[Rfam]
RNA sequence: UUCCAGCAUCAGGAGUGUCCUGGCCGCUUUAAGCCAGGUCCGGCAACCGAGCUUUGGAGACGCUACGGUGCCACGAGUCGCAAGACUCAAUGUGCGGACGAAAGUCCGAAAGGAUGUCUCCCGACAG
Numbered sequence: 001u002u003c004c005a006g007c008a009u010c011a012g013g014a015g016u017g018u019c020c021u022g023g024c025c026g027c028u029u030u031a032a033g034c035c036a037g038g039u040c041c042g043g044c045a046a047c048c049g050a051g052c053u054u055u056g057g058a059g060a061c062g063c064u065a066c067g068g069u070g071c072c073a074c075g076a077g078u079c080g081c082a083a084g085a086c087u088c089a090a091u092g093u094g095c096g097g098a099c100g101a102a103a104g105u106c107c108g109a110a111a112g113g114a115u116g117u118c119u120c121c122c123g124a125c126a127g
Base pairs, nucleotide, nucleotide: 006093007092008091009090015041017040019038020037021036022035023034024033042072043071044070047068048067049066050064051063052062056122057121059119095108096107097106098105
About this RNA
Rfam assigns this 127-nucleotide sequence from Candidatus Korobacter versatilis to the family "SAM-I/IV (S-adenosyl methionine) riboswitch aptamer". The family is grouped with related families in Rfam's "SAM clan". The sequence is in the family's curated seed alignment. Taxonomically the source falls in Candidatus Korobacter versatilis (Bacteria, Pseudomonadati, Acidobacteriota, Candidatus Korobacter).